This 146-nucleotide RNA sequence from Acinetobacter guillouiae belongs to the Rfam family "Manganese Mn2+ riboswitch aptamer (yybP-ykoY)".
Rfam's curators write: This RNA was originally discovered in E. coli during a large scale screen and was named SraF. The family was later found to exist upstream of related families of protein genes in many bacteria, including the the yybP and ykoK genes in B. subtilis. The specific functions of these proteins are unknown, but this structured RNA element may be involved in their genetic regulation as a riboswitch.
Pairs were carried over by alignment from the consensus structure.
[Rfam]
RNA sequence: AAAAACUUCAUUGGGGAGUAGCCGCUUUUUACCUAAGGUAAAAAGGUGAUGGUCAACAUAAUUGCUUAAACUAGCAUGGUCAUCAUAGCAAAGAACCAAAUGAUCCUCCGAUCAUAGAUUUCUUUUUGUUGGCAAGACCUUUGAUU
Numbered sequence: 001a002a003a004a005a006c007u008u009c010a011u012u013g014g015g016g017a018g019u020a021g022c023c024g025c026u027u028u029u030u031a032c033c034u035a036a037g038g039u040a041a042a043a044a045g046g047u048g049a050u051g052g053u054c055a056a057c058a059u060a061a062u063u064g065c066u067u068a069a070a071c072u073a074g075c076a077u078g079g080u081c082a083u084c085a086u087a088g089c090a091a092a093g094a095a096c097c098a099a100a101u102g103a104u105c106c107u108c109c110g111a112u113c114a115u116a117g118a119u120u121u122c123u124u125u126u127u128g129u130u131g132g133c134a135a136g137a138c139c140u141u142u143g144a145u146u
Stems, first nucleotide, its partner, number of pairs: 026044003046086010063076004087145001089143005